RNA: Bacterial RNase P class A
Organism: Oxalicibacterium solurbis
RNA sequence: GAAGCAGGACAAGACAACCGCUGGCCGCCUUACGGCGGCGGGAGGAAGGUCCGGACUCCACAGAGCAGGGUGACGGCUAACGGCCGUCCGCCGAAAGCCGAAAGGUAUAAGGCGAGGAACAGGGCCACAGAGACGAGCGUAUUAAGUUACGGUGAAACGCGGUAACCUCCACCUGGAGCAAUUCCAAAUAGGCACGCGUUGAGGCGGCUCGCGGAGCGUGCGGGUAGGAAGCUUGAGCCGUGGAGUAAUUCACGGCCUAGAGGAAUGGUUGUCAUAGCAGGCGGCGACGCCUGCCGUAACAGAAUCCGGCCUAUCGGACUGCUUCAUUU
Numbered sequence: 001g002a003a004g005c006a007g008g009a010c011a012a013g014a015c016a017a018c019c020g021c022u023g024g025c026c027g028c029c030u031u032a033c034g035g036c037g038g039c040g041g042g043a044g045g046a047a048g049g050u051c052c053g054g055a056c057u058c059c060a061c062a063g064a065g066c067a068g069g070g071u072g073a074c075g076g077c078u079a080a081c082g083g084c085c086g087u088c089c090g091c092c093g094a095a096a097g098c099c100g101a102a103a104g105g106u107a108u109a110a111g112g113c114g115a116g117g118a119a120c121a122g123g124g125c126c127a128c129a130g131a132g133a134c135g136a137g138c139g140u141a142u143u144a145a146g147u148u149a150c151g152g153u154g155a156a157a158c159g160c161g162g163u164a165a166c167c168u169c170c171a172c173c174u175g176g177a178g179c180a181a182u183u184c185c186a187a188a189u190a191g192g193c194a195c196g197c198g199u200u201g202a203g204g205c206g207g208c209u210c211g212c213g214g215a216g217c218g219u220g221c222g223g224g225u226a227g228g229a230a231g232c233u234u235g236a237g238c239c240g241u242g243g244a245g246u247a248a249u250u251c252a253c254g255g256c257c258u259a260g261a262g263g264a265a266u267g268g269u270u271g272u273c274a275u276a277g278c279a280g281g282c283g284g285c286g287a288c289g290c291c292u293g294c295c296g297u298a299a300c301a302g303a304a305u306c307c308g309g310c311c312u313a314u315c316g317g318a319c320u321g322c323u324u325c326a327u328u329u
Base pairs, nucleotide, nucleotide: 001325002324003323004322005321006320007319010316011314013273014272015271016270017269018268019267021042022041024039025038026037027036028035029034047312048311049310051309052308053307054306055305056178057177058176059175063210064209065208066207068174069173070172071171072170073087074086075085076084077083088116089114090113091112092111117169118168122167123166124163125162126161138151139150140149141148182230183229184228185227192221193220194219195218196217197216204212205211237256238255239254240253241252242251243250244249